[Rfam]
RNA: c-di-AMP riboswitch aptamer (ydaO/yuaA leader)
Organism: Xylanimonas protaetiae
RNA sequence: CGCCACGGACUGACGACCCGAAGGCAGGGACGGGGGAACCACCACCGGGCACCGCAUGCGGUGCCCUCGGGGUGAAGCCGCGCGAGCGGCCGGGCGUACUCCUGCCCGAACCCGACAGCUCACCUCGUAGGCGACCAGGAGAGGUAGA
Number, nucleotide and partner (000 for none) at each position: 001c133002g132003c131004c130005a000006c000007g000008g000009a000010c027011u026012g025013a000014c000015g000016a000017c000018c000019c000020g000021a000022a000023g000024g000025c012026a011027g010028g000029g000030a128031c127032g126033g125034g124035g123036g000037a000038a000039c000040c069041a000042c000043c000044a000045c000046c000047g000048g000049g000050c000051a000052c000053c000054g000055c000056a000057u000058g000059c000060g000061g000062u000063g000064c000065c000066c000067u000068c000069g040070g113071g112072g111073u000074g000075a000076a000077g000078c089079c088080g087081c086082g000083c000084g000085a000086g081087c080088g079089g078090c000091c000092g107093g106094g105095c104096g000097u000098a000099c000100u000101c000102c000103u000104g095105c094106c093107c092108g000109a000110a000111c072112c071113c070114g000115a000116c000117a000118g000119c000120u000121c000122a000123c035124c034125u033126c032127g031128u030129a000130g004131g003132c002133g001134a000135c000136c000137a000138g000139g000140a000141g000142a000143g000144g000145u000146a000147g000148a000